[Rfam]
Record summary: A member of the RNA family "Small nucleolar RNA SNORA24" from Microtus ochrogaster, 127 nucleotides long. The family's consensus secondary structure was predicted with RNAfold. From the family's description: ACA24 is a member of the H/ACA class of snoRNA that guide the sites of modification of uridines to pseudouridines. The family has 5 seed sequences and 852 matches in Rfam 15.1. By type it is an H/ACA-box small nucleolar RNA. NCBI's taxonomy places the organism under Eukaryota, Dipnotetrapodomorpha, Myomorpha, Cricetidae, Microtus. Gene Ontology terms of the family: RNA processing and nucleolus.

RNA sequence: AUCGGCAGUUCCUGGGGCCUUGCCGGCUCUGGCAGUCACUUCCUAGCCGUGGAAAGCAUGUUCUUGUUAUUGCCAAAGCCGUCACCAUUUAAUUGGUCUCAGAUUCUGACUUGAACAAGUAACAUCU
Numbered sequence: 001a002u003c004g005g006c007a008g009u010u011c012c013u014g015g016g017g018c019c020u021u022g023c024c025g026g027c028u029c030u031g032g033c034a035g036u037c038a039c040u041u042c043c044u045a046g047c048c049g050u051g052g053a054a055a056g057c058a059u060g061u062u063c064u065u066g067u068u069a070u071u072g073c074c075a076a077a078g079c080c081g082u083c084a085c086c087a088u089u090u091a092a093u094u095g096g097u098c099u100c101a102g103a104u105u106c107u108g109a110c111u112u113g114a115a116c117a118a119g120u121a122a123c124a125u126c127u
Base pairs, nucleotide, nucleotide: 002053003052005050006049015039020035021034022033023032024031065124066123067122068121070118071117072116074113075112076111079102081100084097085096086095087094